The family of this 112-nucleotide RNA sequence from Brachypodium distachyon is "MIR5070 microRNA precursor family". Rfam links the family to the GO terms miRNA-mediated post-transcriptional gene silencing and RISC complex. NCBI's taxonomy places the organism under Eukaryota, Tracheophyta, Petrosaviidae, commelinids, Brachypodium.

[Rfam]
RNA sequence: CAGGGUAUCCUUUAAUCCUUCUUAGUUCAAUCAAAUGAACUAAAAUUUUAAAAUGAUAUAAUUUUUCAAUUAGUUCAUUUGUUUGAACUAAGUAGGGUCAAAGGAUAUCUUG
Numbered sequence: 001c002a003g004g005g006u007a008u009c010c011u012u013u014a015a016u017c018c019u020u021c022u023u024a025g026u027u028c029a030a031u032c033a034a035a036u037g038a039a040c041u042a043a044a045a046u047u048u049u050a051a052a053a054u055g056a057u058a059u060a061a062u063u064u065u066u067c068a069a070u071u072a073g074u075u076c077a078u079u080u081g082u083u084u085g086a087a088c089u090a091a092g093u094a095g096g097g098u099c100a101a102a103g104g105a106u107a108u109c110u111u112g
Base pairs, nucleotide, nucleotide: 002111003110004109005108006107007106008105009104010103011102012101013100015098016097017096018095019094021092022091023090024089025088026087027086028085029084030083032081033080034079035078036077037076038075039074040073041072042071043070